[Rfam]
RNA: mir-148/mir-152 microRNA precursor family
Organism: Sarcophilus harrisii
RNA sequence: CCCGACCCAGGUUCUGUGAUACACUCUGACUUAGACUCUGGAGCAGUCAGUGCAUGACAGAACUUGGGUUUGGG
Numbered sequence: 001c002c003c004g005a006c007c008c009a010g011g012u013u014c015u016g017u018g019a020u021a022c023a024c025u026c027u028g029a030c031u032u033a034g035a036c037u038c039u040g041g042a043g044c045a046g047u048c049a050g051u052g053c054a055u056g057a058c059a060g061a062a063c064u065u066g067g068g069u070u071u072g073g074g
Stems, first nucleotide, its partner, number of pairs: 004070013022052004028048004